[Rfam]
Rfam assigns this 144-nucleotide RNA sequence from Peribacillus muralis to the family "c-di-AMP riboswitch aptamer (ydaO/yuaA leader)".
RNA sequence: AUUUCUAAAUCGCUUAAACCAUUUGGUGCGGGGGACCCGUUAUUGGGAUUAUUUUAUAAUCCAAGGGGUGAAUCCUUCCAAGGUAGGGCUACUCUUAGGUCCGAAUCCGACAGCUAACCUCGUAAGCGUUAUAUGAGAAGGAAG
Numbered sequence: 001a002u003u004u005c006u007a008a009a010u011c012g013c014u015u016a017a018a019c020c021a022u023u024u025g026g027u028g029c030g031g032g033g034g035a036c037c038c039g040u041u042a043u044u045g046g047g048a049u050u051a052u053u054u055u056a057u058a059a060u061c062c063a064a065g066g067g068g069u070g071a072a073u074c075c076u077u078c079c080a081a082g083g084u085a086g087g088g089c090u091a092c093u094c095u096u097a098g099g100u101c102c103g104a105a106u107c108c109g110a111c112a113g114c115u116a117a118c119c120u121c122g123u124a125a126g127c128g129u130u131a132u133a134u135g136a137g138a139a140g141g142a143a144g
Stems, first nucleotide, its partner, number of pairs: 011128004018027003028123006038065001066108003074083003086102004